[Rfam]
RNA: GA-cis RNA
RNA sequence: CGGAGGAGGCCGCCGAAUGAUGCGGAGCAUCAUUUUGCAUGCGGCCGACGAACUGCCGCCGAGGCUAAGCCGAGGGGGCGACACCAUCG
Dot-bracket structure: .......((((((...((((((.....)))))).......))))))........(((.((..((.....))..)).)))..........